[Rfam]
RNA sequence: UAUUCAUUCAAAUGUAAGUCGCUUUGGAUAAAAGCGUCUGCCAAAUGUAAAUGU
Numbered sequence: 001u002a003u004u005c006a007u008u009c010a011a012a013u014g015u016a017a018g019u020c021g022c023u024u025u026g027g028a029u030a031a032a033a034g035c036g037u038c039u040g041c042c043a044a045a046u047g048u049a050a051a052u053g054u
Stems, first nucleotide, its partner, number of pairs: 013043001014041003020036006
Background:
Rfam assigns this 54-nucleotide RNA sequence from Danionella cerebrum to the family "UnaL2 LINE 3' element". The eel long interspersed element (LINE) UnaL2 and its partner short interspersed element (SINE) share a conserved 3' tail containing a stem-loop that is critical for their retrotransposition. Presumably, the first step of retrotransposition is the recognition of their 3' tails by UnaL2-encoded reverse transcriptase. The solution structure of a 17-nucleotide RNA derived from the 3' tail of UnaL2 was determined by NMR. It is annotated as a cis-regulatory element.